[Rfam]
RNA sequence: GCUCCAUGCUAAGUACUAGUGCCGCAGGUGUCUGUGUUUCCUCGAACCCCUGCAGACUGGUGCUUAACAUGGGAC
Numbered sequence: 001g002c003u004c005c006a007u008g009c010u011a012a013g014u015a016c017u018a019g020u021g022c023c024g025c026a027g028g029u030g031u032c033u034g035u036g037u038u039u040c041c042u043c044g045a046a047c048c049c050c051u052g053c054a055g056a057c058u059g060g061u062g063c064u065u066a067a068c069a070u071g072g073g074a075c
Stems, first nucleotide, its partner, number of pairs: 001075001003073005010066010024053005030047001
A member of the RNA family "mir-252 microRNA precursor family" from Branchiostoma belcheri, 75 nucleotides long. Pairs were carried over by alignment from the consensus structure, which was predicted with RNAalifold. Gene Ontology terms of the family: miRNA-mediated post-transcriptional gene silencing and RISC complex. On this family, see Li et al., BMC Genomics 2009: "Direct sequencing and expression analysis of a large number of miRNAs in Aedes aegypti and a multi-species survey of novel mosquito miRNAs". The family is grouped with related families in Rfam's "mir-252 microRNA precursor family".